L31-Actinobacteria ribosomal protein leader: a 46-nucleotide RNA from Nocardia otitidiscaviarum. Rfam classes the family as a cis-regulatory leader.

RNA sequence: UCGGUUCCGGUUCACGUCCUCGGUCGUCGAGGGCGACCCGGCGACC
Numbered sequence: 001u002c003g004g005u006u007c008c009g010g011u012u013c014a015c016g017u018c019c020u021c022g023g024u025c026g027u028c029g030a031g032g033g034c035g036a037c038c039c040g041g042c043g044a045c046c
Stems, first nucleotide, its partner, number of pairs: 003046003007041004015035008
Dot-bracket structure: ..(((.((((....((((((((.....))))))))..))))..)))